A member of the RNA family "sraA" from Acerihabitans arboris, 94 nucleotides long.

Nucleotides: 094
Stems, first nucleotide, its partner, number of pairs: 008038001010036003016032005061085002064082007
Number, partner (000 for none) and nucleotide at each position: 001000a002000g003000g004000u005000a006000a007000u008038u009000g010036a011035g012034u013000a014000u015000a016032u017031g018030g019029g020028g021000g022000c023000g024000a025000a026000u027000c028020u029019u030018u031017u032016a033000c034012a035011u036010u037000c038008a039000a040000u041000a042000a043000c044000c045000g046000g047000g048000a049000u050000a051000a052000c053000g054000g055000a056000a057000a058000a059000a060000c061085a062084a063000a064082u065081g066080g067079g068078g069077g070076a071000c072000g073000g074000a075000a076070u077069c078068c079067c080066c081065c082064a083000c084062u085061u086000u087000a088000u089000u090000a091000c092000u093000u094000u
Rfam classes the family as a small RNA.
The source organism's lineage runs through Bacteria, Pseudomonadota, Gammaproteobacteria, Enterobacterales and Acerihabitans.
On this family, see Argaman et al., Curr Biol 2001: "Novel small RNA-encoding genes in the intergenic regions of Escherichia coli".
The base pairs follow the family's consensus structure, which was predicted with RNAalifold.